Record summary:
The family of this 204-nucleotide RNA sequence is "raiA RNA". Pairs were carried over by alignment from the consensus structure, which is taken from published work. Rfam classes the family as a riboswitch.
[Rfam]
RNA sequence: AUCCUUCGGGUCUGUGGUUGAAAGCCGAAGCCAGUCGCAGGCGAAACGGUCCACGUAAUCCGUCAAAAGUGACGGGGAGCAUGGUGCGGUCUAGAUGUAAGUCCGUCCGGGUGAGAUCCCGAGAGAAGUGAGUGAGGGCGCACAGGCGCAGAGCAACCUUCCAGGCGGCGAGUGUGGGGUCAAAGACCAGGUCAGCCGGAGGAA
Numbered sequence: 001a002u003c004c005u006u007c008g009g010g011u012c013u014g015u016g017g018u019u020g021a022a023a024g025c026c027g028a029a030g031c032c033a034g035u036c037g038c039a040g041g042c043g044a045a046a047c048g049g050u051c052c053a054c055g056u057a058a059u060c061c062g063u064c065a066a067a068a069g070u071g072a073c074g075g076g077g078a079g080c081a082u083g084g085u086g087c088g089g090u091c092u093a094g095a096u097g098u099a100a101g102u103c104c105g106u107c108c109g110g111g112u113g114a115g116a117u118c119c120c121g122a123g124a125g126a127a128g129u130g131a132g133u134g135a136g137g138g139c140g141c142a143c144a145g146g147c148g149c150a151g152a153g154c155a156a157c158c159u160u161c162c163a164g165g166c167g168g169c170g171a172g173u174g175u176g177g178g179g180u181c182a183a184a185g186a187c188c189a190g191g192u193c194a195g196c197c198g199g200a201g202g203a204a
Stems, first nucleotide, its partner, number of pairs: 002203008012195003015189005028175001030173001031041001034090006050084002059075002063071001082182001103168005108121004125161004132154002139148003